RNA sequence: AUAUGCCUGGCUCCCUGUAUGCCAUUUGUAGAGCUCAUCGGAAAAAUCGAUGGGUCUCCGUGGAUGGCGUAUGAGGAGCCAAGCAUAU
Numbered sequence: 001a002u003a004u005g006c007c008u009g010g011c012u013c014c015c016u017g018u019a020u021g022c023c024a025u026u027u028g029u030a031g032a033g034c035u036c037a038u039c040g041g042a043a044a045a046a047u048c049g050a051u052g053g054g055u056c057u058c059c060g061u062g063g064a065u066g067g068c069g070u071a072u073g074a075g076g077a078g079c080c081a082a083g084c085a086u087a088u
Base pairs, nucleotide, nucleotide: 001088002087003086004085005084006083008081009080010079011078012077013076014075016073017072018071019070020069021068022067023066024065027062028061029060
RNA: mir-160 microRNA precursor family